[Rfam]
RNA sequence: AUACUUACCUGGACGUGGUCUAUGGGCGAUCAGGAAUGCUCAUGGCCUAGGUUGGUGGCGUACGUUGCACUUAGUAGGAGUGCCUGCCUAUGGUCUCCUCAAUGUAGGAGAGCGAACGUCAUAAUUUGUUGCCGUGGGGGCCUGCGUUCGCGCGGCCCCCUG
Number, nucleotide and partner (000 for none) at each position: 001a000002u000003a000004c000005u000006u000007a000008c000009c000010u000011g000012g120013a119014c118015g117016u000017g047018g046019u045020c044021u000022a000023u042024g041025g040026g039027c038028g000029a000030u000031c000032a000033g000034g000035a000036a000037u000038g027039c026040u025041c024042a023043u000044g020045g019046c018047c017048u000049a089050g088051g087052u000053u086054g000055g083056u082057g081058g000059c000060g000061u077062a075063c074064g000065u000066u000067g000068c000069a000070c000071u000072u000073a000074g063075u062076a000077g061078g000079a000080g000081u057082g056083c055084c000085u000086g053087c051088c050089u049090a000091u115092g000093g113094u111095c110096u109097c000098c107099u106100c000101a000102a000103u000104g000105u000106a099107g098108g000109a096110g095111a094112g000113c093114g000115a091116a000117c015118g014119u013120c012121a000122u000123a000124a000125u000126u000127u000128g000129u000130u000131g000132c000133c000134g000135u000136g161137g160138g159139g158140g157141c000142c000143u154144g153145c152146g151147u000148u000149c000150g000151c146152g145153c144154g143155g000156c000157c140158c139159c138160c137161u136162g000
The family of this 162-nucleotide RNA sequence from Malus domestica is "U1 spliceosomal RNA". The source organism's lineage runs through Eukaryota, Magnoliopsida, Mesangiospermae, fabids and Malus. A search with the family's covariance model found it, with a score of 119 bits. The family has 100 seed sequences and 40,184 matches in Rfam 15.1. It is annotated as a spliceosomal small nuclear RNA.